A member of the RNA family "pan motif" from Bacillus mycoides, 98 nucleotides long. Rfam classes the family as a cis-regulatory element. Rfam's curators put it in the seed alignment. The source organism's lineage runs through Bacteria, Bacilli, Bacillaceae, Bacillus and Bacillus mycoides. Pairs were carried over by alignment from the consensus structure, which is taken from published work.
RNA sequence: UGGGCAGUAUCAAAGCGAACUGCACCAUUAUUUUACGCAGUAUGAAAAAAUAAUAAUUUGGAUUCUGCCUUGAUCCAAUAAUGGACUGGGACAGAGGG
Numbered sequence: 001u002g003g004g005c006a007g008u009a010u011c012a013a014a015g016c017g018a019a020c021u022g023c024a025c026c027a028u029u030a031u032u033u034u035a036c037g038c039a040g041u042a043u044g045a046a047a048a049a050a051u052a053a054u055a056a057u058u059u060g061g062a063u064u065c066u067g068c069c070u071u072g073a074u075c076c077a078a079u080a081a082u083g084g085a086c087u088g089g090g091a092c093a094g095a096g097g098g
Stems, first nucleotide, its partner, number of pairs: 001027003004023005010018002065094003068090003072086001074085003